[Rfam]
RNA sequence: AUGGUGAUACCUGAAAAACCGAAACAGAGUAGGGA
Numbered sequence: 001a002u003g004g005u006g007a008u009a010c011c012u013g014a015a016a017a018a019c020c021g022a023a024a025c026a027g028a029g030u031a032g033g034g035a
Stems, first nucleotide, its partner, number of pairs: 002021004010034003
RNA: DUF805b RNA
Organism: Kordia sp. SMS9